The family of this 105-nucleotide RNA sequence from Aquibacillus halophilus is "SAM riboswitch aptamer (S box leader)".
Taxonomically the source falls in Aquibacillus (Bacteria, Bacillati, Bacillota, Bacilli).
Gene Ontology term of the family: regulation of gene expression.
Pairs were carried over by alignment from the consensus structure, which is taken from published work.
Clan: SAM clan.

Nucleotides: 105
Stems, first nucleotide, its partner, number of pairs: 001105003005101001007099001013043005021032001023030001026076004044068004049064002051061004077094006
Number, partner (000 for none) and nucleotide at each position: 001105u002104a003103a004000a005101u006000a007099u008000c009000c010000a011000g012000a013043g014042u015041g016040g017039a018000c019000g020000a021032g022000u023030g024000a025000a026076c027075u028074g029073g030023c031000u032021c033000u034000u035000u036000g037000a038000c039017u040016c041015c042014a043013c044068a045067g046066c047065a048000a049064c050063c051061u052060g053059u054058u055000u056000u057000a058054a059053a060052c061051a062000u063050g064049g065047u066046g067045c068044u069000c070000c071000c072000a073029c074028c075027a076026g077094c078093a079092a080091a081090g082089u083000a084000a085000u086000u087000a088000g089082g090081c091080u092079u093078u094077g095000a096000u097000c098000a099007a100000a101005a102000a103003u104002u105001a